[Rfam]
RNA sequence: AGAACAUCCCGCGGGAGCCGGGUGGGACCCGGCUGAGAGGGAGGCUGCGAGCCUCCGACCGCACGAACCUGAUCCGGGUCAUGCCGGCGAAGGGAGUGGAAUCGAGCACCAU
Numbered sequence: 001a002g003a004a005c006a007u008c009c010c011g012c013g014g015g016a017g018c019c020g021g022g023u024g025g026g027a028c029c030c031g032g033c034u035g036a037g038a039g040g041g042a043g044g045c046u047g048c049g050a051g052c053c054u055c056c057g058a059c060c061g062c063a064c065g066a067a068c069c070u071g072a073u074c075c076g077g078g079u080c081a082u083g084c085c086g087g088c089g090a091a092g093g094g095a096g097u098g099g100a101a102u103c104g105a106g107c108a109c110c111a112u
Stems, first nucleotide, its partner, number of pairs: 006102002009099002011062004017033005040056007068093003074087004
This 112-nucleotide RNA sequence from Nocardiopsis sp. NRRL B-16309 belongs to the Rfam family "TPP riboswitch aptamer (THI element)". A search with the family's covariance model found it, with a score of 66 bits. For this family Rfam cites "Ligand binding and gene control characteristics of tandem riboswitches in Bacillus anthracis" (Welz and Breaker, RNA, 2007).